RNA sequence: GGGUGCUCUGGAUCUUUGUCUCUGGAGCCUGCGUGAAAGAUACAAAGAGAAAAGCCCCGAGUCGAUAUCCAUCAACCCGAGGCCUACUCUAACGCAUCACAACGUUAAGUUAGCCUCUUACCCGCCGCGAGGCAAGGAGAAGAAGGCAUGAUG
Numbered sequence: 001g002g003g004u005g006c007u008c009u010g011g012a013u014c015u016u017u018g019u020c021u022c023u024g025g026a027g028c029c030u031g032c033g034u035g036a037a038a039g040a041u042a043c044a045a046a047g048a049g050a051a052a053a054g055c056c057c058c059g060a061g062u063c064g065a066u067a068u069c070c071a072u073c074a075a076c077c078c079g080a081g082g083c084c085u086a087c088u089c090u091a092a093c094g095c096a097u098c099a100c101a102a103c104g105u106u107a108a109g110u111u112a113g114c115c116u117c118u119u120a121c122c123c124g125c126c127g128c129g130a131g132g133c134a135a136g137g138a139g140a141a142g143a144a145g146g147c148a149u150g151a152u153g
Stems, first nucleotide, its partner, number of pairs: 001058003005055003009052001013048007021040003027034002059078001064073003079117005086111001088109001090107005121146002125142001
RNA: sok antitoxin (CssrC)